RNA sequence: GGUCACGAGAUCCGAUGCAAAGCCCUGGCUGGUCGGACGGCAACCCUCACACGCGUGGCGGGGUGCUCCAGGUGAUGACCCGGCCGCGUCGACCACGCGGCAAGCACGCUCG
Numbered sequence: 001g002g003u004c005a006c007g008a009g010a011u012c013c014g015a016u017g018c019a020a021a022g023c024c025c026u027g028g029c030u031g032g033u034c035g036g037a038c039g040g041c042a043a044c045c046c047u048c049a050c051a052c053g054c055g056u057g058g059c060g061g062g063g064u065g066c067u068c069c070a071g072g073u074g075a076u077g078a079c080c081c082g083g084c085c086g087c088g089u090c091g092a093c094c095a096c097g098c099g100g101c102a103a104g105c106a107c108g109c110u111c112g
Stems, first nucleotide, its partner, number of pairs: 001080004009038001011037006021030002039067003044063003048058001050057001083101007

The record is a 112-nucleotide RNA sequence from Dermacoccus nishinomiyaensis, which matches "SAM (S-adenosyl methionine) riboswitch aptamer" in Rfam. Pairs were carried over by alignment from the consensus structure, which is taken from published work. The source organism's lineage runs through Bacteria, Bacillati, Actinomycetota, Micrococcales and Dermacoccus. From the family's description: SAM-IV is a mRNA element that regulates gene expression via direct sensing of S-adenosylmethionine (SAM or AdoMet). SAM-IV riboswitches share conserved nucleotide positions with the previously described SAM-I riboswitches sequence analysis and molecular recognition experiments suggest that SAM-I and SAM-IV riboswitches share similar ligand binding sites, but have different scaffolds. Rfam links the family to the GO terms S-adenosylmethionine metabolic process and regulation of gene expression. It scores 80 bits against the family's covariance model. The family has 40 seed sequences and 2,360 matches in Rfam 15.1.